[Rfam]
RNA: Bacterial small subunit ribosomal RNA, nucleotides 539 to 894
RNA sequence: GGCGUAAAGAGCUCGUAGGUGGUUUGUUGCGUCGGAAGUGAAAACACAGGGCUUAACUCUGUGCUUGCUUUCGAUACGGGCAGACUUGAGGAAGGUAGGGGAGAACGGAAUUCCUGGUGGAGCGGUGGAAUGCGCAGAUAUCAGGAGGAACACCAGUGGCGAAGGCGGUUCUCUGGACCUUUCCUGACGCUGAGGAGCGAAAGCGUGGGGAGCAAACAGGCUUAGAUACCCUGGUAGUCCACGCCGUAAACGGUGGGCACUAGGUGUGGGGGACAUUCCACGUUCUCCGUGCCGUAGCUAACGCAUUAAGUGCCCCGCCUGGGGAGUACGGCCGCAAGGCUAAAACUCAAAGGAAU
Numbered sequence: 001g002g003c004g005u006a007a008a009g010a011g012c013u014c015g016u017a018g019g020u021g022g023u024u025u026g027u028u029g030c031g032u033c034g035g036a037a038g039u040g041a042a043a044a045c046a047c048a049g050g051g052c053u054u055a056a057c058u059c060u061g062u063g064c065u066u067g068c069u070u071u072c073g074a075u076a077c078g079g080g081c082a083g084a085c086u087u088g089a090g091g092a093a094g095g096u097a098g099g100g101g102a103g104a105a106c107g108g109a110a111u112u113c114c115u116g117g118u119g120g121a122g123c124g125g126u127g128g129a130a131u132g133c134g135c136a137g138a139u140a141u142c143a144g145g146a147g148g149a150a151c152a153c154c155a156g157u158g159g160c161g162a163a164g165g166c167g168g169u170u171c172u173c174u175g176g177a178c179c180u181u182u183c184c185u186g187a188c189g190c191u192g193a194g195g196a197g198c199g200a201a202a203g204c205g206u207g208g209g210g211a212g213c214a215a216a217c218a219g220g221c222u223u224a225g226a227u228a229c230c231c232u233g234g235u236a237g238u239c240c241a242c243g244c245c246g247u248a249a250a251c252g253g254u255g256g257g258c259a260c261u262a263g264g265u266g267u268g269g270g271g272g273a274c275a276u277u278c279c280a281c282g283u284u285c286u287c288c289g290u291g292c293c294g295u296a297g298c299u300a301a302c303g304c305a306u307u308a309a310g311u312g313c314c315c316c317g318c319c320u321g322g323g324g325a326g327u328a329c330g331g332c333c334g335c336a337a338g339g340c341u342a343a344a345a346c347u348c349a350a351a352g353g354a355a356u
Stems, first nucleotide, its partner, number of pairs: 001319003009316001011198004016192001018191003022085007030078002032074009045063007089185003092181005100174007107151001111147008122133003159166002203244006212238002217233004255315006263293012297304002321348003330341004